[Rfam]
RNA sequence: UGGGCGGUAGCCGAAAAGCCCUUCAUAGAGUAGGCA
Numbered sequence: 001u002g003g004g005c006g007g008u009a010g011c012c013g014a015a016a017a018g019c020c021c022u023u024c025a026u027a028g029a030g031u032a033g034g035c036a
Stems, first nucleotide, its partner, number of pairs: 002021004010035003
Dot-bracket structure: .((((....[[[.....))))...........]]].
Shown here is a 36-nucleotide sequence from Hymenobacter lutimineralis, a member of the family "DUF805b RNA". It scores 44 bits against the family's covariance model. The family is grouped with related families in Rfam's "DUF805 clan". The family's consensus secondary structure is taken from published work. It is annotated as a cis-regulatory element.